A member of the RNA family "MIR408 microRNA precursor family" from Arachis hypogaea, 157 nucleotides long. Gene Ontology terms of the family: miRNA-mediated post-transcriptional gene silencing and RISC complex. On this family, see Sunkar and Zhu, Plant Cell 2004: "Novel and stress-regulated microRNAs and other small RNAs from Arabidopsis". Taxonomically the source falls in Arachis (Eukaryota, Streptophyta, eudicotyledons, rosids).

RNA sequence: AAGAGAUAAAGACAAAGCUAGGGAUGAGAUAGAGCAUGGAUGGGGCUAUCAACAGAAAAGAAUAAUGAAGAAAGAAGCUGAGAGGAGAAAAGAAAGAAAUUUGUUGCGGCUUCGUUCAUGCACUGCCUCUUCCCUGGCUUUGGCUCUUUUCUUCUCU
Numbered sequence: 001a002a003g004a005g006a007u008a009a010a011g012a013c014a015a016a017g018c019u020a021g022g023g024a025u026g027a028g029a030u031a032g033a034g035c036a037u038g039g040a041u042g043g044g045g046c047u048a049u050c051a052a053c054a055g056a057a058a059a060g061a062a063u064a065a066u067g068a069a070g071a072a073a074g075a076a077g078c079u080g081a082g083a084g085g086a087g088a089a090a091a092g093a094a095a096g097a098a099a100u101u102u103g104u105u106g107c108g109g110c111u112u113c114g115u116u117c118a119u120g121c122a123c124u125g126c127c128u129c130u131u132c133c134c135u136g137g138c139u140u141u142g143g144c145u146c147u148u149u150u151c152u153u154c155u156c157u
Base pairs, nucleotide, nucleotide: 015140016139017138019136020135021134022133023132024131027128028127030125031124032123034121035120036119037118038117039116043112044111045110046109047108